[Rfam]
RNA sequence: GUUUGUCGGGUGCAGUGGUUCUUAACAGUUCAACAGUUCUAUCCAAAAAUUGUGAAAUGUUUAGGACCACUUGACCAGGC
Numbered sequence: 001g002u003u004u005g006u007c008g009g010g011u012g013c014a015g016u017g018g019u020u021c022u023u024a025a026c027a028g029u030u031c032a033a034c035a036g037u038u039c040u041a042u043c044c045a046a047a048a049a050u051u052g053u054g055a056a057a058u059g060u061u062u063a064g065g066a067c068c069a070c071u072u073g074a075c076c077a078g079g080c
Stems, first nucleotide, its partner, number of pairs: 014071006021064002024061004029056004